[Rfam]
RNA sequence: GAAAGGACACAUAACUGGCGGAAGUUGAGUUUACUACAGGAAGUGUGGCUUAUAAAGUAAAAAUGUCGACCGCUUGGGCAAAAAAU
Numbered sequence: 001g002a003a004a005g006g007a008c009a010c011a012u013a014a015c016u017g018g019c020g021g022a023a024g025u026u027g028a029g030u031u032u033a034c035u036a037c038a039g040g041a042a043g044u045g046u047g048g049c050u051u052a053u054a055a056a057g058u059a060a061a062a063a064u065g066u067c068g069a070c071c072g073c074u075u076g077g078g079c080a081a082a083a084a085a086u
Base pairs, nucleotide, nucleotide: 004051005050006049008047009046010045011044012043015040016039017074018073019072020071021070024037025036027034064080065079066078067077

This 86-nucleotide RNA sequence from Clostridium thailandense belongs to the Rfam family "ZMP/ZTP riboswitch aptamer (pfl RNA motif)". Rfam links the family to the GO terms regulation of purine nucleotide biosynthetic process and one-carbon metabolic process. On this family, see Tran et al., Cell Chem Biol 2020: "Parallel Discovery Strategies Provide a Basis for Riboswitch Ligand Design". The source organism's lineage runs through Bacteria, Bacillota, Eubacteriales, Clostridiaceae and Clostridium.